[Rfam]
Rfam assigns this 366-nucleotide RNA from Cercocebus atys to the family "Mason-Pfizer monkey virus packaging signal". It scores 88 bits against the family's covariance model. The base pairs follow the family's consensus structure, which was predicted with PFOLD. A reference for the family is Mustafa et al. (2004), "Mutational analysis of the predicted secondary RNA structure of the Mason-Pfizer monkey virus packaging signal", Virus Res. The organism belongs to Cercocebus, within Eukaryota.

RNA sequence: UGGCGCCCCACGUGGGGCCUGGAAACGGAGGGGACUCGUGAGGGAAGAGGCGUAAAGGCAAGAACGGGUCGACCGUUAACAAAGAACAAAGAAAUUAACUCUUCGAUCUUCGAGUCACCGGCGGGGGAACCUGCCGCGUCGAAUCGAAGGUAGUGACUCGCGGAUCCCCGGCGGGAACCCUGCGCGGUCAGAAUCGAAGGUUAAGUGAGACGCGGUUCCGAAGAUUUGGGACCAAGAUUAAAGUCAAUCAUCAACAUUUCUAUGGUAGGGACAAUUAAAAAGAGGCUUUAAGAUAAACGAGGAGUCAAAGGUUAAAGAUAACUGAUUUGUUUAAUUUUUUUGGAUUUUAUAAAGACACUUGCCUUG
Numbered sequence: 001u002g003g004c005g006c007c008c009c010a011c012g013u014g015g016g017g018c019c020u021g022g023a024a025a026c027g028g029a030g031g032g033g034a035c036u037c038g039u040g041a042g043g044g045a046a047g048a049g050g051c052g053u054a055a056a057g058g059c060a061a062g063a064a065c066g067g068g069u070c071g072a073c074c075g076u077u078a079a080c081a082a083a084g085a086a087c088a089a090a091g092a093a094a095u096u097a098a099c100u101c102u103u104c105g106a107u108c109u110u111c112g113a114g115u116c117a118c119c120g121g122c123g124g125g126g127g128a129a130c131c132u133g134c135c136g137c138g139u140c141g142a143a144u145c146g147a148a149g150g151u152a153g154u155g156a157c158u159c160g161c162g163g164a165u166c167c168c169c170g171g172c173g174g175g176a177a178c179c180c181u182g183c184g185c186g187g188u189c190a191g192a193a194u195c196g197a198a199g200g201u202u203a204a205g206u207g208a209g210a211c212g213c214g215g216u217u218c219c220g221a222a223g224a225u226u227u228g229g230g231a232c233c234a235a236g237a238u239u240a241a242a243g244u245c246a247a248u249c250a251u252c253a254a255c256a257u258u259u260c261u262a263u264g265g266u267a268g269g270g271a272c273a274a275u276u277a278a279a280a281a282g283a284g285g286c287u288u289u290a291a292g293a294u295a296a297a298c299g300a301g302g303a304g305u306c307a308a309a310g311g312u313u314a315a316a317g318a319u320a321a322c323u324g325a326u327u328u329g330u331u332u333a334a335u336u337u338u339u340u341u342g343g344a345u346u347u348u349a350u351a352a353a354g355a356c357a358c359u360u361g362c363c364u365u366g
Base pairs, nucleotide, nucleotide: 006031007030012026013025036067037066038065039064101153102152108150109149114144115142116141122138123137125135126134162233163232165231166230167229168228241289242288243286244285245284298342299341300340301339302338303337304336309328310327311326312325313324314323352365353364354363356361